[Rfam]
RNA sequence: GCACCGGAUAGGUUGGCCCCCGAAAAGGCGUUUCUCGGACGCCCUGCCGGUGCAUCCCAUACAGCCGAGG
Numbered sequence: 001g002c003a004c005c006g007g008a009u010a011g012g013u014u015g016g017c018c019c020c021c022g023a024a025a026a027g028g029c030g031u032u033u034c035u036c037g038g039a040c041g042c043c044c045u046g047c048c049g050g051u052g053c054a055u056c057c058c059a060u061a062c063a064g065c066c067g068a069g070g
Stems, first nucleotide, its partner, number of pairs: 001053007011021002027043005033070005
Rfam assigns this 70-nucleotide RNA from Desulfatibacillum alkenivorans to the family "int-alpA RNA".
Acidobacteria (1 example), Planctomycetes (1 example), Proteobacteria.
Rfam classes the family as a small RNA.
The source organism's lineage runs through Bacteria, Thermodesulfobacteriota, Desulfobacterales, Desulfatibacillum and Desulfatibacillum alkenivorans.